bZIP non canonical Hac1/Xbp1 intron: a 73-nucleotide sequence from Oncorhynchus tshawytscha.

[Rfam]
RNA sequence: GGAUCGGGUCUUCUGAGUCUGCAGUACUCAGGCUAUGUGUGCCUCCGCAGCAGGUGCAGGCCCAGCAAUGUCC
Numbered sequence: 001g002g003a004u005c006g007g008g009u010c011u012u013c014u015g016a017g018u019c020u021g022c023a024g025u026a027c028u029c030a031g032g033c034u035a036u037g038u039g040u041g042c043c044u045c046c047g048c049a050g051c052a053g054g055u056g057c058a059g060g061c062c063c064a065g066c067a068a069u070g071u072c073c
Stems, first nucleotide, its partner, number of pairs: 001073004006063005013031006040056005